[Rfam]
Nucleotides: 217
Stems, first nucleotide, its partner, number of pairs: 001034013045069006052062002096201003100196001103116004118194005124187003129181003134176001136174003139168004147160001
Number, partner (000 for none) and nucleotide at each position: 001034c002033u003032g004031c005030u006029g007028c008027g009026g010025g011024g012023g013022g014000c015000a016000u017000a018000c019000c020000c021000g022013c023012c024011u025010c026009u027008c028007g029006u030005a031004g032003c033002a034001g035000u036000u037000u038000g039000u040000u041000a042000u043000c044000g045069a046068g047067c048066c049065g050064u051000a052062g053061c054000c055000c056000a057000c058000a059000a060000a061053g062052c063000c064050a065049c066048g067047g068046c069045u070000u071000u072000a073000g074000u075000u076000g077000a078000a079000a080000a081000a082000a083000g084000a085000a086000a087000g088000u089000a090000a091000u092000a093000g094000c095000a096201g097200g098199g099000a100196c101000u102000a103116c104115c105114g106113g107000a108000a109000g110000u111000g112000a113106c114105c115104g116103g117000a118194c119193u120192a121191u122190c123000u124187g125186c126185g127000u128000a129181a130180c131179c132000g133000u134176g135000g136174u137173g138172g139168c140167u141166u142165u143000a144000c145000c146000c147160a148000a149000g150000u151000c152000g153000c154000u155000g156000c157000a158000c159000u160147u161000g162000a163000c164000c165142a166141a167140a168139g169000c170000u171000u172138c173137c174136g175000a176134u177000g178000c179131g180130g181129u182000c183000c184000a185126c186125g187124c188000c189000a190122g191121g192120u193119g194118g195000u196100g197000u198000c199098c200097c201096c202000c203000g204000a205000u206000c207000g208000a209000g210000g211000g212000u213000g214000a215000c216000c217000a